[Rfam]
RNA sequence: UAAAAGCGAUGAAGUGAGAGGUUGUUGGCACACCCGGCCCCUUUGCCAUGGCUAGUGCGCCAAGGAAUUUUCACGGAGAAUGUCUAUAAUGAUAUGGGCGA
Numbered sequence: 001u002a003a004a005a006g007c008g009a010u011g012a013a014g015u016g017a018g019a020g021g022u023u024g025u026u027g028g029c030a031c032a033c034c035c036g037g038c039c040c041c042u043u044u045g046c047c048a049u050g051g052c053u054a055g056u057g058c059g060c061c062a063a064g065g066a067a068u069u070u071u072c073a074c075g076g077a078g079a080a081u082g083u084c085u086a087u088a089a090u091g092a093u094a095u096g097g098g099c100g101a
Stems, first nucleotide, its partner, number of pairs: 014074003018071004025063005081100006
Shown here is a 101-nucleotide RNA from Oceanobacillus halophilus, a member of the family "S10-Clostridia ribosomal protein leader". On this family, see Eckert and Weinberg, BMC Microbiol 2020: "Discovery of 20 novel ribosomal leader candidates in bacteria and archaea". The family's RNA type in Rfam is cis-regulatory leader.